The record is a 131-nucleotide sequence from Caloenas nicobarica, which matches "Small nucleolar RNA SNORA55" in Rfam.
RNA sequence: GCACCAAAUCUUUCCCAUUCCUAACUGUGCAGUGUGGGCCUGGGGAUACAUGGUGCUCACAGAAGAGCAGAGUAAAUCCAGGCAGGUGAUUUGAUUCAGUGAGUACCUGUCUCUACACCUCUGCAACAGUU
Dot-bracket structure: (((((......((((((..((...............))..)))))).....)))))..........((((((.......((((((((.................))))))))......)))))).......
Lineage of the source: Eukaryota > Dinosauria > Neoaves > Columbidae > Caloenas.
By type it is an H/ACA-box small nucleolar RNA.
The family's consensus secondary structure was predicted with PFOLD.
Gene Ontology terms of the family: nucleolus and RNA processing.
The family has 29 seed sequences and 1,476 matches in Rfam 15.1.
ACA55 is a member of the H/ACA class of snoRNA that guide the sites of modification of uridines to pseudouridines.